[Rfam]
RNA sequence: AAAGCAGAUUGCUAUUAUGGUAUUCCUUUUCUUGGAAAUAUUUCAACUAUCCUACUAAAACAGGCAUGCUGAUCAGUUUUUAUUUUGCCUUUAGGAGGUUAAAAUCAUGACAGAUUGACAAAAUA
Numbered sequence: 001a002a003a004g005c006a007g008a009u010u011g012c013u014a015u016u017a018u019g020g021u022a023u024u025c026c027u028u029u030u031c032u033u034g035g036a037a038a039u040a041u042u043u044c045a046a047c048u049a050u051c052c053u054a055c056u057a058a059a060a061c062a063g064g065c066a067u068g069c070u071g072a073u074c075a076g077u078u079u080u081u082a083u084u085u086u087g088c089c090u091u092u093a094g095g096a097g098g099u100u101a102a103a104a105u106c107a108u109g110a111c112a113g114a115u116u117g118a119c120a121a122a123a124u125a
Stems, first nucleotide, its partner, number of pairs: 003056002006053002019042006026035001067120002070117005080107001082105006089098003
Record summary: Shown here is a 125-nucleotide sequence from Marmota marmota, a member of the family "Small nucleolar RNA SNORA69". The family's consensus secondary structure was predicted with PFOLD. Lineage of the source: Eukaryota > Eumetazoa > Bilateria > Marmotini > Marmota marmota. Gene Ontology terms of the family: RNA processing and nucleolus. Rfam describes the family as follows. U69 is a member of the H/ACA class of small nucleolar RNAs (snoRNAs) which act as guides in the the modification of uridines to pseudouridines.